[Rfam]
RNA sequence: AAAUGAACACGCGGGGGCUCUCACGAACCGAGGGCUGAGAUGGCGACAGGACGGUCGCCGACCGCCGGAACCUGUCCGGAUAAUGCCGGCGUAGGGAGUUGAAAUUAUGGGCAC
Dot-bracket structure: ........((((((..(((((.........)))))......(((((........)))))..)))).....((((.((((......))))..))))..))...............
A member of the RNA family "TPP riboswitch aptamer (THI element)" from Gordonia effusa, 114 nucleotides long. Its family is annotated with thiamine pyrophosphate binding in the Gene Ontology. It scores 62 bits against the family's covariance model.